[Rfam]
Notes
A member of the RNA family "EcpR1" from Nordella sp. HKS 07, 106 nucleotides long. A reference for the family is Reinkensmeier et al. (2011), "Conservation and Occurrence of Trans-Encoded sRNAs in the Rhizobiales", Genes (Basel). It is annotated as a small RNA. The match comes from Rfam's covariance-model search (63 bits). Perviously named SmelC291, SmrC10, or Sra33. The family's consensus secondary structure was predicted with WAR.
RNA sequence: ACGCCCCGCGGGUCAGGUCCGCCGCAUCUCCUGAAACGAGGGGCUCAGCCGGUCCGGGAGCGCAUCGAGUGGCCUCCUCGAUAUCACGCACCGGGCCGGCGCCCCC
Numbered sequence: 001a002c003g004c005c006c007c008g009c010g011g012g013u014c015a016g017g018u019c020c021g022c023c024g025c026a027u028c029u030c031c032u033g034a035a036a037c038g039a040g041g042g043g044c045u046c047a048g049c050c051g052g053u054c055c056g057g058g059a060g061c062g063c064a065u066c067g068a069g070u071g072g073c074c075u076c077c078u079c080g081a082u083a084u085c086a087c088g089c090a091c092c093g094g095g096c097c098g099g100c101g102c103c104c105c106c
Stems, first nucleotide, its partner, number of pairs: 003044005009038002013034005048100010
Dot-bracket structure: ..(((((.((..(((((............)))))..)).)))))...((((((((((.................................))))))))))......